This 274-nucleotide RNA from Nannospalax galili belongs to the Rfam family "Mason-Pfizer monkey virus packaging signal".
Rfam classes the family as a cis-regulatory element.
Pairs were carried over by alignment from the consensus structure, which was predicted with PFOLD.
About the family: This family represents a group of sequences that are related to the Mason-Pfizer monkey virus (MPMV) packaging signal. The packaging signal is located in the 5' UTR and is required for specific RNA encapsidation.
Taxonomically the source falls in Nannospalax (Eukaryota, Amniota, Myomorpha, Spalacinae).
RNA sequence: UGGCGCCCAACGUGGGGCCUGGAUACUGGGGGACAAUGUGAGGGACAUGACUAAAGAAGAAGGGGUGUGCACCCGCUCAAAUAGUUCGGAGACGUCGCAGUAGGCUGCUGUGACUGAGCUGACAGGUAAGUUGGUCAUUCAAUCAUGGGGCAAGAAUUAAGUCAACAUCAAAAAUAUGUGAUACAGUUAAGAGAAGCUUUACAGGCAAGAGGAGUAAAGGUUACAACUGAGGAUUCAUUUCAUUUAUUUGAUUUUGUAAAGGACAUUUGUCCCU
Numbered sequence: 001u002g003g004c005g006c007c008c009a010a011c012g013u014g015g016g017g018c019c020u021g022g023a024u025a026c027u028g029g030g031g032g033a034c035a036a037u038g039u040g041a042g043g044g045a046c047a048u049g050a051c052u053a054a055a056g057a058a059g060a061a062g063g064g065g066u067g068u069g070c071a072c073c074c075g076c077u078c079a080a081a082u083a084g085u086u087c088g089g090a091g092a093c094g095u096c097g098c099a100g101u102a103g104g105c106u107g108c109u110g111u112g113a114c115u116g117a118g119c120u121g122a123c124a125g126g127u128a129a130g131u132u133g134g135u136c137a138u139u140c141a142a143u144c145a146u147g148g149g150g151c152a153a154g155a156a157u158u159a160a161g162u163c164a165a166c167a168u169c170a171a172a173a174a175u176a177u178g179u180g181a182u183a184c185a186g187u188u189a190a191g192a193g194a195a196g197c198u199u200u201a202c203a204g205g206c207a208a209g210a211g212g213a214g215u216a217a218a219g220g221u222u223a224c225a226a227c228u229g230a231g232g233a234u235u236c237a238u239u240u241c242a243u244u245u246a247u248u249u250g251a252u253u254u255u256g257u258a259a260a261g262g263a264c265a266u267u268u269g270u271c272c273c274u
Stems, first nucleotide, its partner, number of pairs: 006031003012026003036048004086126002088123001093118001096112005136150001138149004158201003161197002209249003213245002219235004259274001261272004